The record is a 96-nucleotide sequence from Ktedonosporobacter rubrisoli, which matches "ZMP/ZTP riboswitch aptamer (pfl RNA motif)" in Rfam. Pairs were carried over by alignment from the consensus structure, which is taken from published work.

RNA sequence: UUUUCUUCAGGUGACUGGCGAAAGAACGUGGAAUUACCACGGGGGAACCUGAAGAGCAAACAUGUAUGUAAUCAGCCGCUCGCCUGGGCUGGGGCA
Dot-bracket structure: ..((((((((((..(([[[[[......((((.....))))..))..))))))))))................(((((..]]]]]..))))).....